The record is a 91-nucleotide RNA sequence from Thermanaerovibrio acidaminovorans, which matches "Selenocysteine transfer RNA" in Rfam. Pairs were carried over by alignment from the consensus structure, which is taken from published work.
Nucleotides: 091
Base pairs, nucleotide, nucleotide: 001091002090003089004088005087006086007085009083011026012025013024014023015022016021028044029043030042031041032040047065048064049063050062051061068082069081070080071079
Number, partner (000 for none) and nucleotide at each position: 001091g002090g003089a004088g005087g006086u007085g008000a009083g010000u011026c012025g013024u014023a015022g016021c017000u018000g019000g020000u021016g022015c023014u024013g025012c026011g027000c028044c029043c030042a031041g032040g033000c034000u035000u036000c037000a038000a039000a040032c041031c042030u043029g044028g045000u046000g047065g048064g049063g050062g051061u052000c053000g054000g055000u056000a057000g058000c059000c060000g061051g062050u063049c064048c065047c066000g067000g068082u069081g070080g071079g072000u073000u074000c075000g076000a077000u078000u079071c080070c081069c082068a083009c084000g085007c086006g087005c088004c089003u090002c091001c
Taxonomically the source falls in Thermanaerovibrio acidaminovorans (Bacteria, Thermotogati, Synergistota, Synergistia).